FMN riboswitch aptamer (RFN element): a 118-nucleotide sequence. Pairs were carried over by alignment from the consensus structure, which is taken from published work.
RNA sequence: UAACGUCUUCAGGGCAGGGUGCAAGUCCCUACCGGCGGUUAUAGCCCGCGAGCCUUAUAUGGCAUGACUUGGUGAGAUUCCAAGGCCGACAGUACAGUCUGGAUGGAAGAAGAUUUAA
Numbered sequence: 001u002a003a004c005g006u007c008u009u010c011a012g013g014g015c016a017g018g019g020u021g022c023a024a025g026u027c028c029c030u031a032c033c034g035g036c037g038g039u040u041a042u043a044g045c046c047c048g049c050g051a052g053c054c055u056u057a058u059a060u061g062g063c064a065u066g067a068c069u070u071g072g073u074g075a076g077a078u079u080c081c082a083a084g085g086c087c088g089a090c091a092g093u094a095c096a097g098u099c100u101g102g103a104u105g106g107a108a109g110a111a112g113a114u115u116u117a118a
Stems, first nucleotide, its partner, number of pairs: 003116001005114006017029003031098002033088002035049004044086002068084005090101003